[Rfam]
RNA sequence: CAGCGUUCUCGGGGCGGGGUGUAACUCCCCACCGGCGGUGAUGAUCGACGGGACGUGCGUUCCGGAUAUCUCAGCCCGCGAGCGCCCGCCACCUCCCGGUGGCGGGGUCAGCAGAUUCGGUGUGAUUCCGAAGCCGACGGUCACAGUCCGGAUGGAAGAGAACGGGA
Numbered sequence: 001c002a003g004c005g006u007u008c009u010c011g012g013g014g015c016g017g018g019g020u021g022u023a024a025c026u027c028c029c030c031a032c033c034g035g036c037g038g039u040g041a042u043g044a045u046c047g048a049c050g051g052g053a054c055g056u057g058c059g060u061u062c063c064g065g066a067u068a069u070c071u072c073a074g075c076c077c078g079c080g081a082g083c084g085c086c087c088g089c090c091a092c093c094u095c096c097c098g099g100u101g102g103c104g105g106g107g108u109c110a111g112c113a114g115a116u117u118c119g120g121u122g123u124g125a126u127u128c129c130g131a132a133g134c135c136g137a138c139g140g141u142c143a144c145a146g147u148c149c150g151g152a153u154g155g156a157a158g159a160g161a162a163c164g165g166g167a
Stems, first nucleotide, its partner, number of pairs: 004164007017029003031147002033136002035079004074134002082112002116132005138150003

Shown here is a 167-nucleotide RNA from alpha proteobacterium BAL199, a member of the family "FMN riboswitch aptamer (RFN element)". The match comes from Rfam's covariance-model search (104 bits). Rfam's curators write: The RFN element is a highly conserved domain that is found frequently in the 5'-untranslated regions of prokaryotic mRNAs that encode for flavin mononucleotide (FMN) biosynthesis and transport proteins.